[Rfam]
RNA sequence: ACCAAAGCAAAGAGAAGGGUGGUGCAGAGAGAAAAAAGAGCAGUAGGAAUAGGAGCUGUGUUCCUUGGGUUCCUAGGAGCAGCAGGAAGCACUAUGGGCGCGGCGUCAAUGACGCUGACGGUACAGGCCAGACAACUAUUGUCGGGCAUAGUGCAACAGAAAAACAACUUUCUGAAGGCUAUAGAGGCUCAACAGCACCUGUUGAAACUCACGGUCGGGGGCAUUAGACAGCUCCAGGGGAGAGUCCUGGCUGUGGAAAGGUACCUAAAGGAUCAACAGCUCCUAGGAAUAUGGGGCUGCUCUGGAAAGCUCAUCUGCACCACUACUGUGCCAUGGA
Numbered sequence: 001a002c003c004a005a006a007g008c009a010a011a012g013a014g015a016a017g018g019g020u021g022g023u024g025c026a027g028a029g030a031g032a033a034a035a036a037a038g039a040g041c042a043g044u045a046g047g048a049a050u051a052g053g054a055g056c057u058g059u060g061u062u063c064c065u066u067g068g069g070u071u072c073c074u075a076g077g078a079g080c081a082g083c084a085g086g087a088a089g090c091a092c093u094a095u096g097g098g099c100g101c102g103g104c105g106u107c108a109a110u111g112a113c114g115c116u117g118a119c120g121g122u123a124c125a126g127g128c129c130a131g132a133c134a135a136c137u138a139u140u141g142u143c144g145g146g147c148a149u150a151g152u153g154c155a156a157c158a159g160a161a162a163a164a165c166a167a168c169u170u171u172c173u174g175a176a177g178g179c180u181a182u183a184g185a186g187g188c189u190c191a192a193c194a195g196c197a198c199c200u201g202u203u204g205a206a207a208c209u210c211a212c213g214g215u216c217g218g219g220g221g222c223a224u225u226a227g228a229c230a231g232c233u234c235c236a237g238g239g240g241a242g243a244g245u246c247c248u249g250g251c252u253g254u255g256g257a258a259a260g261g262u263a264c265c266u267a268a269a270g271g272a273u274c275a276a277c278a279g280c281u282c283c284u285a286g287g288a289a290u291a292u293g294g295g296g297c298u299g300c301u302c303u304g305g306a307a308a309g310c311u312c313a314u315c316u317g318c319a320c321c322a323c324u325a326c327u328g329u330g331c332c333a334u335g336g337a
Stems, first nucleotide, its partner, number of pairs: 002336003007331003018324007026316003029312003037303008050285008062272004066267005071261002074258001079254005089154006095125002099120002101117006127147003131143005157174006175248001177246004184210003189205007215238002218235005

This 337-nucleotide RNA sequence from Lentivirus humimdef1 belongs to the Rfam family "HIV Rev response element". A search with the family's covariance model found it, with a score of 337 bits. Rfam links the family to the GO terms protein binding, nuclear transport and nucleus. It is annotated as a cis-regulatory element.